The family of this 117-nucleotide RNA sequence from Cimex lectularius is "Small nucleolar RNA SNORA24". The family's RNA type in Rfam is H/ACA-box small nucleolar RNA. Gene Ontology terms of the family: RNA processing and nucleolus. It scores 41 bits against the family's covariance model. The base pairs follow the family's consensus structure, which was predicted with RNAfold. Rfam's curators write: ACA24 is a member of the H/ACA class of snoRNA that guide the sites of modification of uridines to pseudouridines. Lineage of the source: Eukaryota > Ecdysozoa > Altocrustacea > Hexapoda > Cimex.
[Rfam]
RNA sequence: ACCUACUUUGCUAUGCCGCUUGGCCACUAUGCCAAAAUUGCAUAAUUGCCAUGGGAUGGUUUAUAUUGAUAUACAUAAUUUGUAAUUUUUUUUUUAAUCACAAAAAUAGUUAUCUUC
Dot-bracket structure: .((((.........((.(.(((((......)))))..).))..........))))............((((...((...(((..(((........)))..)))..))...))))...